[Rfam]
RNA: Small nucleolar RNA Z161/Z228
RNA sequence: AAGCCAAAUGACGAUUCCGGAUUAUAUUCUCACGACGGUCGUCUGACAAUCAUAUCUUUUCGUAGGGUAUGAUCCAUUUGAUGUAUUGAUCCAAUUGUUCUGAUGGUU
Numbered sequence: 001a002a003g004c005c006a007a008a009u010g011a012c013g014a015u016u017c018c019g020g021a022u023u024a025u026a027u028u029c030u031c032a033c034g035a036c037g038g039u040c041g042u043c044u045g046a047c048a049a050u051c052a053u054a055u056c057u058u059u060u061c062g063u064a065g066g067g068u069a070u071g072a073u074c075c076a077u078u079u080g081a082u083g084u085a086u087u088g089a090u091c092c093a094a095u096u097g098u099u100c101u102g103a104u105g106g107u108u
Stems, first nucleotide, its partner, number of pairs: 001108002004105001049073010